[Rfam]
RNA sequence: GUUGAAGCCCCAUCUACAAAUGGGUAAGACUUCGAUCUUAGUGUGUACGAGUUCUUGAAAAAAAAAAAAAGGAGCAAUCGCCAAUUUCUUGUUCUAUCAAGGGGGCCGGCAUUGCUCCUUUUUU
Dot-bracket structure: ........(((((......)))))...........................................(((((((((((.......(((((........))))).......)))))))))))...
Notes: Plastid-psbA-1 3UTR RNA: a 124-nucleotide sequence. It is one of the family's seed sequences. The family's consensus secondary structure was predicted with LocARNA. The literature on the family includes a 2023 paper in Plant Commun by Richter et al., "Retrograde signaling in plants: A critical review focusing on the GUN pathway and beyond".